[Rfam]
RNA: glmS glucosamine-6-phosphate activated ribozyme aptamer
RNA sequence: CAAGUAUAUGAAGCGCCUGGACCAUAAUCAAGACUCGAGGUCAAAACUUGGAGAUCUUGAUUACGGUUGACGAGGAAGAGGGUUAUCGAAGAUUUCGGCGGGUCCCUCUCGGUGUCUUGACAUCGUAAGGCUUAUGACAAAACCGCGAAGCAAUUUGCGAAACAAAACGUAAGUCUCAAGACAA
Numbered sequence: 001c002a003a004g005u006a007u008a009u010g011a012a013g014c015g016c017c018u019g020g021a022c023c024a025u026a027a028u029c030a031a032g033a034c035u036c037g038a039g040g041u042c043a044a045a046a047c048u049u050g051g052a053g054a055u056c057u058u059g060a061u062u063a064c065g066g067u068u069g070a071c072g073a074g075g076a077a078g079a080g081g082g083u084u085a086u087c088g089a090a091g092a093u094u095u096c097g098g099c100g101g102g103u104c105c106c107u108c109u110c111g112g113u114g115u116c117u118u119g120a121c122a123u124c125g126u127a128a129g130g131c132u133u134a135u136g137a138c139a140a141a142a143c144c145g146c147g148a149a150g151c152a153a154u155u156u157g158c159g160a161a162a163c164a165a166a167a168c169g170u171a172a173g174u175c176u177c178a179a180g181a182c183a184a
Stems, first nucleotide, its partner, number of pairs: 020068004025063003029059005077109005086098004110125005129175007144159006